The record is an 80-nucleotide RNA from Crocodylus porosus, which matches "Mammalian CPEB3 ribozyme" in Rfam. The source organism's lineage runs through Eukaryota, Gnathostomata, Archosauria, Crocodylidae and Crocodylus. Rfam's curators write: The mammalian CPEB3 ribozyme is a self cleaving RNA located in the second intron of the CPEB3 gene which belongs to a family of genes regulating messenger RNA polyadenylation.
[Rfam]
RNA sequence: AGAGGUUGCAAGGUCGAGGCCAUAGCAGAAGCGCUUCCGGCAUGGCCCUGUCAGAUUUCAACGAAUCUGUGAAUUCUGCU
Number, nucleotide and partner (000 for none) at each position: 001a000002g000003a000004g000005g000006u000007u000008g000009c000010a000011a000012g000013g048014u000015c000016g000017a000018g047019g046020c045021c044022a000023u000024a080025g079026c078027a077028g076029a075030a074031g043032c000033g041034c000035u000036u000037c000038c000039g000040g000041c033042a000043u031044g021045g020046c019047c018048c013049u000050g000051u000052c069053a068054g067055a066056u065057u064058u063059c000060a000061a000062c000063g058064a057065a056066u055067c054068u053069g052070u000071g000072a000073a000074u030075u029076c028077u027078g026079c025080u024